[Rfam]
RNA sequence: CUCGCCGCCUUCUCGAAUUCGCUUGGUGCAGGUCGGGAACCGUUUCAGGUGCGUCCGAUUCGAUCACGAUGUGAUCAGGAGCGUCCGUUAUGGUGCACCCGGUUCUCCACUUGCAUCAACUGAAUUCGAGAACGUUUGGCGA
Numbered sequence: 001c002u003c004g005c006c007g008c009c010u011u012c013u014c015g016a017a018u019u020c021g022c023u024u025g026g027u028g029c030a031g032g033u034c035g036g037g038a039a040c041c042g043u044u045u046c047a048g049g050u051g052c053g054u055c056c057g058a059u060u061c062g063a064u065c066a067c068g069a070u071g072u073g074a075u076c077a078g079g080a081g082c083g084u085c086c087g088u089u090a091u092g093g094u095g096c097a098c099c100c101g102g103u104u105c106u107c108c109a110c111u112u113g114c115a116u117c118a119a120c121u122g123a124a125u126u127c128g129a130g131a132a133c134g135u136u137u138g139g140c141g142a
Base pairs, nucleotide, nucleotide: 013129014128017125018124019123020122023119024118025117026116027115028114029113030112031111032110035107036106037105038104040102041101